Source information: Rfam assigns this 129-nucleotide RNA from Effusibacillus dendaii to the family "c-di-AMP riboswitch aptamer (ydaO/yuaA leader)".
RNA sequence: GUUAAAAAUAAGCCGAAGCUCAAUCGAGCGCGGGGGACCCAUUUUUUGGGGUGAAACCACAUUAGUGGCAGGGUAAUCCUCUUUACCCGAAUCCGUCAGCUAACCUCGCAGGCUUCAGAGAGGAGAUGU
Numbered sequence: 001g002u003u004a005a006a007a008a009u010a011a012g013c014c015g016a017a018g019c020u021c022a023a024u025c026g027a028g029c030g031c032g033g034g035g036g037a038c039c040c041a042u043u044u045u046u047u048g049g050g051g052u053g054a055a056a057c058c059a060c061a062u063u064a065g066u067g068g069c070a071g072g073g074u075a076a077u078c079c080u081c082u083u084u085a086c087c088c089g090a091a092u093c094c095g096u097c098a099g100c101u102a103a104c105c106u107c108g109c110a111g112g113c114u115u116c117a118g119a120g121a122g123g124a125g126a127u128g129u
Base pairs, nucleotide, nucleotide: 011114012113013112014111018029019028020027030109031108032107033106034105035104040048041047049094050093051092057068058067059066060065071088072087073086074085
Dot-bracket structure: ..........((((...(((......)))((((((....((.....))(((.....((((....))))..((((..........))))...))).........)))))).))))...............

Overview
The source organism's lineage runs through Bacteria, Bacillota, Caryophanales, Alicyclobacillaceae and Effusibacillus.